[Rfam]
RNA sequence: AUACUUACCUGGACGGGGUCAAUAGUUGAUCAUGUAGGACUAUGGUCUAGGGUAAUGACCACCAUUGCACUUAGGAGGGGUGUUAUCUUAAGGUCUACCUAAGUGGUGGAGCCUAUGUCAUAAUUUGUGGCAGUGGGGGUUUGCGUUCUCGCAGCCCCUAU
Number, nucleotide and partner (000 for none) at each position: 001a000002u000003a000004c000005u000006u000007a000008c000009c000010u000011g000012g119013a118014c117015g116016g048017g047018g046019u045020c044021a043022a000023u042024a041025g040026u039027u038028g000029a000030u000031c000032a000033u000034g000035u000036a000037g000038g027039a026040c025041u024042a023043u021044g020045g019046u018047c017048u016049a089050g088051g087052g000053u000054a000055a083056u082057g081058a000059c079060c078061a000062c075063c074064a000065u000066u000067g000068c000069a000070c000071u000072u000073a000074g063075g062076a000077g000078g060079g059080g000081u057082g056083u055084u000085a000086u000087c051088u050089u049090a000091a114092g113093g112094u110095c109096u108097a000098c106099c105100u000101a000102a000103g000104u000105g099106g098107u000108g096109g095110a094111g000112c093113c092114u091115a000116u015117g014118u013119c012120a000121u000122a000123a000124u000125u000126u000127g000128u000129g000130g000131c000132a000133g000134u160135g159136g158137g157138g156139g000140u000141u000142u153143g152144c151145g150146u000147u000148c000149u000150c145151g144152c143153a142154g000155c000156c138157c137158c136159u135160a134161u000

Rfam assigns this 161-nucleotide sequence from Lupinus albus to the family "U1 spliceosomal RNA". U1 is a small nuclear RNA (snRNA) component of the spliceosome (involved in pre-mRNA splicing). Its 5' end forms complementary base pairs with the 5' splice junction, thus defining the 5' donor site of an intron. There are significant differences in sequence and secondary structure between metazoan and yeast U1 snRNAs, the latter being much longer (568 nucleotides as compared to 164 nucleotides in human). Nevertheless, secondary structure predictions suggest that all U1 snRNAs share a 'common core' consisting of helices I, II, the proximal region of III, and IV. This family does not contain the larger yeast sequences. A reference for the family is Charenton et al. (2019), "Mechanism of 5' splice site transfer for human spliceosome activation", Science. Lineage of the source: Eukaryota > Euphyllophyta > Fabales > core genistoids > Lupinus.